[Rfam]
RNA sequence: AUACUUACCUGGCAGGGGAGAUACCAUGAUCAUGAAGGUGGCUUUCCCAGGAGGAGGCUUAUCCGUUGCACUCAGGAUGUGCUGACCCCAGCAAUUUCCCCAAAUGUGGGAAACUCGACUGCAUAAUUGGUGGUAGUGGAGGACUGGGUUCCCGCUAACCCCUG
Numbered sequence: 001a002u003a004c005u006u007a008c009c010u011g012g013c014a015g016g017g018g019a020g021a022u023a024c025c026a027u028g029a030u031c032a033u034g035a036a037g038g039u040g041g042c043u044u045u046c047c048c049a050g051g052a053g054g055a056g057g058c059u060u061a062u063c064c065g066u067u068g069c070a071c072u073c074a075g076g077a078u079g080u081g082c083u084g085a086c087c088c089c090a091g092c093a094a095u096u097u098c099c100c101c102a103a104a105u106g107u108g109g110g111a112a113a114c115u116c117g118a119c120u121g122c123a124u125a126a127u128u129g130g131u132g133g134u135a136g137u138g139g140a141g142g143a144c145u146g147g148g149u150u151c152c153c154g155c156u157a158a159c160c161c162c163u164g
Stems, first nucleotide, its partner, number of pairs: 012122004016048006024041004050089002054086001056083003060079005092117001094115001095113003099109002138163002141160002146155001148153001